[Rfam]
RNA sequence: AGGGUAGCAACCUUAAUUCUUGGUGAAGGCAAACCACGGGUACGUAUUAAUACGUAUAGCUAUCCACAUAUUAUUCAUGUUUGCACCAUGAUAAUAUGGAUAGGGCAUUGAUGUUAGCAUCAUUAAUGCAAAAUUGCGUUUUCAUGCAUGUCGCGAAAUGCAAGGAAAUACAGCGAUUAGAUUCGGACAGGAGGAAGUACACAAAUGUUUGAACCCUUUUAACAAAUCCCGUACUUGGGGGUACGGUAGUGCAAAUACCGCACUUAUAAUUUAAUGCUACAAUAGUAGCUGUUGGG
Numbered sequence: 001a002g003g004g005u006a007g008c009a010a011c012c013u014u015a016a017u018u019c020u021u022g023g024u025g026a027a028g029g030c031a032a033a034c035c036a037c038g039g040g041u042a043c044g045u046a047u048u049a050a051u052a053c054g055u056a057u058a059g060c061u062a063u064c065c066a067c068a069u070a071u072u073a074u075u076c077a078u079g080u081u082u083g084c085a086c087c088a089u090g091a092u093a094a095u096a097u098g099g100a101u102a103g104g105g106c107a108u109u110g111a112u113g114u115u116a117g118c119a120u121c122a123u124u125a126a127u128g129c130a131a132a133a134u135u136g137c138g139u140u141u142u143c144a145u146g147c148a149u150g151u152c153g154c155g156a157a158a159u160g161c162a163a164g165g166a167a168a169u170a171c172a173g174c175g176a177u178u179a180g181a182u183u184c185g186g187a188c189a190g191g192a193g194g195a196a197g198u199a200c201a202c203a204a205a206u207g208u209u210u211g212a213a214c215c216c217u218u219u220u221a222a223c224a225a226a227u228c229c230c231g232u233a234c235u236u237g238g239g240g241g242u243a244c245g246g247u248a249g250u251g252c253a254a255a256u257a258c259c260g261c262a263c264u265u266a267u268a269a270u271u272u273a274a275u276g277c278u279a280c281a282a283u284a285g286u287a288g289c290u291g292u293u294g295g296g
Stems, first nucleotide, its partner, number of pairs: 001013003018039002021036004040057007068097008077089002102217004106128008133177004139168005145162005182213008228239004241263002244260004276289004
RNA: RAGATH-15 RNA